The family of this 154-nucleotide RNA sequence from Triticum aestivum is "MIR5062 microRNA precursor family". Taxonomically the source falls in Triticum (Eukaryota, Viridiplantae, Streptophyta, Tracheophyta). It scores 141 bits against the family's covariance model. Gene Ontology terms of the family: RISC complex and miRNA-mediated post-transcriptional gene silencing.
RNA sequence: CAUAGCUUCUUGAACCUUGGGGAAAAGCCGCAUAACACCAUUAACUUGAAAACCAUGUAUUUCCUAUCCCAAAACUGCUCCUAGCACAAGGGGUAAAAGAUGGUUUUUAGUUGUGUGGUCAUGCGGAUUUUUCACCAAGAUUCAAGUGGUUAUC
Dot-bracket structure: .((((((.((((((.(((.((((((((((((((.((..(((.((((.((((((((..(.(((..((((((...................)))))))))).)))))))))))))))..)).)))))).)))))).))))).)))))).)))))).